[Rfam]
RNA sequence: CUUACCGGAGGCUUUAUGGAUCCCGAUCCCACACCUCUCUCGCGCUGGAGAGUAACGUUCCGGUAAGUCAGUUUUGCGCUGCCUUGCCGAUGAUGUGAGGCAGUGACAUUCC
Numbered sequence: 001c002u003u004a005c006c007g008g009a010g011g012c013u014u015u016a017u018g019g020a021u022c023c024c025g026a027u028c029c030c031a032c033a034c035c036u037c038u039c040u041c042g043c044g045c046u047g048g049a050g051a052g053u054a055a056c057g058u059u060c061c062g063g064u065a066a067g068u069c070a071g072u073u074u075u076g077c078g079c080u081g082c083c084u085u086g087c088c089g090a091u092g093a094u095g096u097g098a099g100g101c102a103g104u105g106a107c108a109u110u111c112c
Base pairs, nucleotide, nucleotide: 001067002066003065004064005063006062007061008060009059010058017031018030019029036051037050038049039048040047078104079103080102081101082100083099084098085097086096087095
Shown here is a 112-nucleotide sequence from Kluyvera genomosp. 3, a member of the family "Magnesium riboswitch aptamer (Magnesium responsive RNA element)". A reference for the family is Groisman et al. (2006), "A Mg2+-responding RNA that controls the expression of a Mg2+ transporter", Cold Spring Harb Symp Quant Biol. The Magnesium sensor RNA element is a cis-regulatory element that regulates the expression of the magnesium transporter protein MgtA. It is located in the 5' UTR of this gene. The element adopts different structures depending on the presence or absence of Mg2+, this has the affect of regulating whether transcription reads through the mgtA coding region or stops within the 5' UTR. Lineage of the source: Bacteria > Pseudomonadati > Pseudomonadota > Gammaproteobacteria > Kluyvera. The family's consensus secondary structure is taken from published work. It scores 90 bits against the family's covariance model. Its family is annotated with regulation of gene expression in the Gene Ontology.